[Rfam]
RNA sequence: UUUCCAGUCAGGCUUCUGGCUAAGUCCAGCUUUUAGCUGGACUUAGGCAAAGCCUGGCUGUUAA
Numbered sequence: 001u002u003u004c005c006a007g008u009c010a011g012g013c014u015u016c017u018g019g020c021u022a023a024g025u026c027c028a029g030c031u032u033u034u035a036g037c038u039g040g041a042c043u044u045a046g047g048c049a050a051a052g053c054c055u056g057g058c059u060g061u062u063a064a
Base pairs, nucleotide, nucleotide: 007058008057009056011054012053013052014051017049018048020046021045022044023043024042026040027039028038029037030036
Overview
This 64-nucleotide sequence from Cricetulus griseus belongs to the Rfam family "mir-344 microRNA precursor family". NCBI's taxonomy places the organism under Eukaryota, Metazoa, Eutheria, Euarchontoglires, Cricetulus.